Source information
The family of this 106-nucleotide RNA sequence from Mesorhizobium sp. J18 is "rpsB sRNA". It is annotated as a small RNA. For this family Rfam cites "Identification of candidate structured RNAs in the marine organism 'Candidatus Pelagibacter ubique'" (Meyer et al., BMC Genomics, 2009). It scores 42 bits against the family's covariance model. The organism belongs to Mesorhizobium, within Bacteria.
[Rfam]
RNA sequence: CACACACGGACUUGGGUAUCUGACCGGGAGAAAUACGGCUGACACCUCCGGUGGCGGGGCAACCCGCCGUUUGGUCCGUGGAGGCUAACCGGAAAGGAAGAACGCA
Numbered sequence: 001c002a003c004a005c006a007c008g009g010a011c012u013u014g015g016g017u018a019u020c021u022g023a024c025c026g027g028g029a030g031a032a033a034u035a036c037g038g039c040u041g042a043c044a045c046c047u048c049c050g051g052u053g054g055c056g057g058g059g060c061a062a063c064c065c066g067c068c069g070u071u072u073g074g075u076c077c078g079u080g081g082a083g084g085c086u087a088a089c090c091g092g093a094a095a096g097g098a099a100g101a102a103c104g105c106a
Stems, first nucleotide, its partner, number of pairs: 001083001003081001005080007015046002024038002027036001053068006